[Rfam]
RNA sequence: CAUCGAGGAAGGAGGUGGUCCCGAGGUGAAUUUUCUUCGGACGCGAGAGGUGACUGUCCGCUAGUCGCCGCGCCUGCUGAUGUAGACGCAUCGGACGGACUGUCCCGUCGUUCGCCAGGCCGCGUGCGGCCAGCGAGUUCCAGGCAGUCACCGCAGCCCGUGGGAGCCGCGAUCUCGUCCAUCGCGGCAGGGUUCCUCACCGAACCCGGCCCACGGGCUGUUCCCU
Numbered sequence: 001c002a003u004c005g006a007g008g009a010a011g012g013a014g015g016u017g018g019u020c021c022c023g024a025g026g027u028g029a030a031u032u033u034u035c036u037u038c039g040g041a042c043g044c045g046a047g048a049g050g051u052g053a054c055u056g057u058c059c060g061c062u063a064g065u066c067g068c069c070g071c072g073c074c075u076g077c078u079g080a081u082g083u084a085g086a087c088g089c090a091u092c093g094g095a096c097g098g099a100c101u102g103u104c105c106c107g108u109c110g111u112u113c114g115c116c117a118g119g120c121c122g123c124g125u126g127c128g129g130c131c132a133g134c135g136a137g138u139u140c141c142a143g144g145c146a147g148u149c150a151c152c153g154c155a156g157c158c159c160g161u162g163g164g165a166g167c168c169g170c171g172a173u174c175u176c177g178u179c180c181a182u183c184g185c186g187g188c189a190g191g192g193u194u195c196c197u198c199a200c201c202g203a204a205c206c207c208g209g210c211c212c213a214c215g216g217g218c219u220g221u222u223c224c225c226u
Stems, first nucleotide, its partner, number of pairs: 014058006059135004064130002067127002072123002154220011168186006

Background: The family of this 226-nucleotide sequence from Pengzhenrongella sicca is "Actinobacteria sRNA Ms_IGR-5". Taxonomically the source falls in Pengzhenrongella (Bacteria, Bacillati, Actinomycetota, Micrococcales). Rfam classes the family as a small RNA.